Shown here is an 87-nucleotide RNA sequence from Streptomyces colonosanans, a member of the family "nrdJ RNA". The source organism's lineage runs through Bacteria, Actinomycetes, Kitasatosporales, Streptomycetaceae and Streptomyces.

RNA sequence: ACCCGUCACGCGCUCGCGCACGAUGCGCGUGACAAGUCAGACAUACGACACGGUGCCACGGGAAGAAACGGGGCACUUUAGGGCGUU
Numbered sequence: 001a002c003c004c005g006u007c008a009c010g011c012g013c014u015c016g017c018g019c020a021c022g023a024u025g026c027g028c029g030u031g032a033c034a035a036g037u038c039a040g041a042c043a044u045a046c047g048a049c050a051c052g053g054u055g056c057c058a059c060g061g062g063a064a065g066a067a068a069c070g071g072g073g074c075a076c077u078u079u080a081g082g083g084c085g086u087u
Stems, first nucleotide, its partner, number of pairs: 005033009015022002053076005059070002